[Rfam]
RNA: tRNA
RNA sequence: AGGCUCAUGGUGUAAUGGUAGCACUAAAGUUUCUGGUUCUUUCAGUCGGGGUUCAAAUCCCUGUGAGCCUG
Numbered sequence: 001a002g003g004c005u006c007a008u009g010g011u012g013u014a015a016u017g018g019u020a021g022c023a024c025u026a027a028a029g030u031u032u033c034u035g036g037u038u039c040u041u042u043c044a045g046u047c048g049g050g051g052u053u054c055a056a057a058u059c060c061c062u063g064u065g066a067g068c069c070u071g
Base pairs, nucleotide, nucleotide: 001070002069003068004067005066006065007064010024011023012022013021026042027041028040029039047063048062049061050060051059